[Rfam]
The record is a 116-nucleotide sequence from Streptomyces actuosus, which matches "Streptomyces-metK RNA" in Rfam.

RNA sequence: GCGAGACAGGGGGGUCGGUGAGCUGACGCGACCGAUAAACUGUUCUCGGACGACGCCGGGUGCAGCCCCCGUCCGUCCACCCAUGAUCAGCCAGCAGCCGCUGCAACCCCAGGGAG
Numbered sequence: 001g002c003g004a005g006a007c008a009g010g011g012g013g014g015u016c017g018g019u020g021a022g023c024u025g026a027c028g029c030g031a032c033c034g035a036u037a038a039a040c041u042g043u044u045c046u047c048g049g050a051c052g053a054c055g056c057c058g059g060g061u062g063c064a065g066c067c068c069c070c071g072u073c074c075g076u077c078c079a080c081c082c083a084u085g086a087u088c089a090g091c092c093a094g095c096a097g098c099c100g101c102u103g104c105a106a107c108c109c110c111a112g113g114g115a116g
Base pairs, nucleotide, nucleotide: 048078049077050076051075052074057071058070059069060068092103093102094101095100
Lineage of the source: Bacteria > Actinomycetota > Kitasatosporales > Streptomycetaceae > Streptomyces.